RNA sequence: GUCUUGCGCCUGAAAGGGCGACGAAAAAAAAUCGGAGCGAGAAGUCAGCAGAGGCCGUAGUAGCCCGUUUUUUUUGAGGGUGAAGGGC
Numbered sequence: 001g002u003c004u005u006g007c008g009c010c011u012g013a014a015a016g017g018g019c020g021a022c023g024a025a026a027a028a029a030a031a032u033c034g035g036a037g038c039g040a041g042a043a044g045u046c047a048g049c050a051g052a053g054g055c056c057g058u059a060g061u062a063g064c065c066c067g068u069u070u071u072u073u074u075u076g077a078g079g080g081u082g083a084a085g086g087g088c
Stems, first nucleotide, its partner, number of pairs: 002025001004023001007020005045052002054088003063081004068076001
About this RNA: The record is an 88-nucleotide RNA from Massilia forsythiae, which matches "Group II catalytic intron D1-D4-1" in Rfam. Lineage of the source: Bacteria > Pseudomonadota > Burkholderiales > Oxalobacteraceae > Massilia. The base pairs follow the family's consensus structure. Rfam's curators write: Group II introns are found in rRNA, tRNA and mRNA of organelles in fungi, plants and protists, and also in mRNA in bacteria. Gene Ontology term of the family: Group II intron splicing. On this family, see Chu et al., EMBO J 2001: "Control of branch-site choice by a group II intron".